[Rfam]
RNA sequence: UGGCGACGAGGCAUUUGACUGGUUCGGUUGCAGCCGAGUGCGGAGCCUGAUCGUGGGUUAUGCGGGAACCACAAGCCGAAUAGAUUCUUUGGAUCGAAGAAAAACGCUUACA
Numbered sequence: 001u002g003g004c005g006a007c008g009a010g011g012c013a014u015u016u017g018a019c020u021g022g023u024u025c026g027g028u029u030g031c032a033g034c035c036g037a038g039u040g041c042g043g044a045g046c047c048u049g050a051u052c053g054u055g056g057g058u059u060a061u062g063c064g065g066g067a068a069c070c071a072c073a074a075g076c077c078g079a080a081u082a083g084a085u086u087c088u089u090u091g092g093a094u095c096g097a098a099g100a101a102a103a104a105c106g107c108u109u110a111c112a
Stems, first nucleotide, its partner, number of pairs: 002047003011041007019033003024079004062107003083095004
The record is a 112-nucleotide RNA, which matches "drum RNA" in Rfam. Rfam classes the family as a small RNA. About the family: Firmicutes, Bacteroidetes (1 example), Proteobacteria (2 examples), Spirochaetes (2 examples).